Small nucleolar RNA SNORD75: a 65-nucleotide RNA from Cavia porcellus.
For this family Rfam cites "Purified box C/D snoRNPs are able to reproduce site-specific 2'-O-methylation of target RNA in vitro" (Galardi et al., Mol Cell Biol, 2002).
Taxonomically the source falls in Cavia (Eukaryota, Metazoa, Chordata, Teleostomi).
Rfam links the family to the GO terms nucleolus and RNA processing.
The family's RNA type in Rfam is C/D-box small nucleolar RNA.

[Rfam]
RNA sequence: AGCCUGUGAUGCUUAAUACAGAGUAGUGGACAGAAGGGAUUUCUGAAACGUUUGCUUCUGAGGCU
Numbered sequence: 001a002g003c004c005u006g007u008g009a010u011g012c013u014u015a016a017u018a019c020a021g022a023g024u025a026g027u028g029g030a031c032a033g034a035a036g037g038g039a040u041u042u043c044u045g046a047a048a049c050g051u052u053u054g055c056u057u058c059u060g061a062g063g064c065u
Stems, first nucleotide, its partner, number of pairs: 001065004
The family's consensus secondary structure was predicted with RNAalifold.